[Rfam]
RNA sequence: CAUCUACAAAGGCAACCUCAUUGAGAGAUGGGGACGCAAAGUCACAGGUCCAAUACUGGAUGGCUGGAUUGCAUAG
Numbered sequence: 001c002a003u004c005u006a007c008a009a010a011g012g013c014a015a016c017c018u019c020a021u022u023g024a025g026a027g028a029u030g031g032g033g034a035c036g037c038a039a040a041g042u043c044a045c046a047g048g049u050c051c052a053a054u055a056c057u058g059g060a061u062g063g064c065u066g067g068a069u070u071g072c073a074u075a076g
Stems, first nucleotide, its partner, number of pairs: 012037002017032006040070004045066003048061003